[Rfam]
RNA sequence: UCCAGUGGUAGUCAGCUGUCCAGAGCAAUACUGUGCCUGGGAUAGUGUUACACUGCUGGGAGAUAAACAUCAGCCAUUGCUUCUGGCUGCUGUUGUCACCGUUCUGGAGACAGCUGGUGCCAGCAAGAAAUGGCUUUGUGCUUCCCUGAGAGCGCACUGGAGGUUCUCCUGUCCUCUUCAGUGCUAGUCUGGAAGCCUACACA
Numbered sequence: 001u002c003c004a005g006u007g008g009u010a011g012u013c014a015g016c017u018g019u020c021c022a023g024a025g026c027a028a029u030a031c032u033g034u035g036c037c038u039g040g041g042a043u044a045g046u047g048u049u050a051c052a053c054u055g056c057u058g059g060g061a062g063a064u065a066a067a068c069a070u071c072a073g074c075c076a077u078u079g080c081u082u083c084u085g086g087c088u089g090c091u092g093u094u095g096u097c098a099c100c101g102u103u104c105u106g107g108a109g110a111c112a113g114c115u116g117g118u119g120c121c122a123g124c125a126a127g128a129a130a131u132g133g134c135u136u137u138g139u140g141c142u143u144c145c146c147u148g149a150g151a152g153c154g155c156a157c158u159g160g161a162g163g164u165u166c167u168c169c170u171g172u173c174c175u176c177u178u179c180a181g182u183g184c185u186a187g188u189c190u191g192g193a194a195g196c197c198u199a200c201a202c203a
Stems, first nucleotide, its partner, number of pairs: 001060009011051002015046006021039003072135007083123005090116001092114001094112004099107002138198001140196006154184003158180006
RNA: Small nucleolar RNA SNORA74